[Rfam]
RNA: Group II catalytic intron D1-D4-6
RNA sequence: AAAGUCCCUUACAGUGAAAGAGUAGCGAUCUACACUGGCCCCAAGUCAUGCGUGGGUGGCCGUGAGGCCAUACGUGAAGCGUUGACAGGGGUGCGUAUAGGCCAGCCAUUGAGCGGCGAAAAAUCAAUCUGGGGGGCCGAUGCUCUCAAACUUGCAGAAGGCAAUAUGAACAGGUGCGAUAAUAAUGCGAGUGCUUGUUUGCCCCCACGUCGUCUGAGACCC
Number, nucleotide and partner (000 for none) at each position: 001a000002a000003a000004g000005u000006c000007c000008c000009u000010u000011a000012c037013a036014g035015u034016g033017a000018a000019a031020g030021a029022g000023u190024a000025g188026c187027g000028a000029u021030c020031u019032a000033c016034a015035c014036u013037g012038g000039c091040c090041c089042c088043a000044a000045g086046u085047c084048a083049u081050g080051c076052g075053u074054g073055g000056g071057u070058g069059g068060c067061c066062g000063u000064g000065a000066g061067g060068c059069c058070a057071u056072a000073c054074g053075u052076g051077a000078a000079g000080c050081g049082u000083u048084g047085a046086c045087a000088g042089g041090g040091g039092u000093g000094c000095g000096u000097a000098u000099a000100g000101g000102c000103c000104a000105g000106c000107c000108a000109u000110u216111g214112a000113g213114c212115g211116g210117c209118g208119a000120a000121a000122a000123a000124u000125c000126a000127a000128u000129c000130u207131g206132g205133g204134g203135g202136g162137c161138c160139g000140a000141u156142g155143c154144u000145c000146u000147c000148a000149a000150a000151c000152u000153u000154g143155c142156a141157g000158a000159a000160g138161g137162c136163a000164a000165u000166a000167u201168g200169a199170a198171c197172a196173g195174g194175u193176g192177c191178g000179a000180u000181a000182a000183u000184a000185a000186u000187g026188c025189g000190a023191g177192u176193g175194c174195u173196u172197g171198u170199u169200u168201g167202c135203c134204c133205c132206c131207a130208c118209g117210u116211c115212g114213u113214c111215u000216g110217a000218g000219a000220c000221c000222c000